RNA sequence: AAUCAAUCAUGUAACUGGCGGAAAUGGAGAUUACCAUGGGGAGCAUGAUUGAAAAGAGUAUCGGCCGCCUGGGUAAAUAUA
Numbered sequence: 001a002a003u004c005a006a007u008c009a010u011g012u013a014a015c016u017g018g019c020g021g022a023a024a025u026g027g028a029g030a031u032u033a034c035c036a037u038g039g040g041g042a043g044c045a046u047g048a049u050u051g052a053a054a055a056g057a058g059u060a061u062c063g064g065c066c067g068c069c070u071g072g073g074u075a076a077a078u079a080u081a
Base pairs, nucleotide, nucleotide: 003052004051005050006049007048008047009046010045011044012043015040016039017069018068019067020066021065024037025036026035027034059075060074061073062072
The family of this 81-nucleotide RNA from Clostridium thailandense is "ZMP/ZTP riboswitch aptamer (pfl RNA motif)". The source organism's lineage runs through Bacteria, Bacillota, Clostridia, Eubacteriales and Clostridium. The match comes from Rfam's covariance-model search (60 bits). A reference for the family is Jones and Ferre-D'Amare (2015), "Recognition of the bacterial alarmone ZMP through long-distance association of two RNA subdomains", Nat Struct Mol Biol.